Description: Shown here is a 122-nucleotide sequence from Caldicellulosiruptor saccharolyticus, a member of the family "SAM riboswitch aptamer (S box leader)".
RNA sequence: UUCUUAUCAAGAGUGGUGGAGGGACUGGCCCAAUGAAGCCCGGCAACCGGAAAAAGGUAUGGGUGCCCUUUUUCUUGGUGCCAAUUCCAGCAGGUAUUUUUAAAAUACCUGGCAGAUAAGAA
Numbered sequence: 001u002u003c004u005u006a007u008c009a010a011g012a013g014u015g016g017u018g019g020a021g022g023g024a025c026u027g028g029c030c031c032a033a034u035g036a037a038g039c040c041c042g043g044c045a046a047c048c049g050g051a052a053a054a055a056g057g058u059a060u061g062g063g064u065g066c067c068c069u070u071u072u073u074c075u076u077g078g079u080g081c082c083a084a085u086u087c088c089a090g091c092a093g094g095u096a097u098u099u100u101u102a103a104a105a106u107a108c109c110u111g112g113c114a115g116a117u118a119a120g121a122a
Base pairs, nucleotide, nucleotide: 001122002121003120004119005118006117007116008115013041015040016039017038021031022030023029025090026089027088028087042082043081044080045079047078048077049074050073051072052071053070054069086114091111092110093109094108095107096106097105098104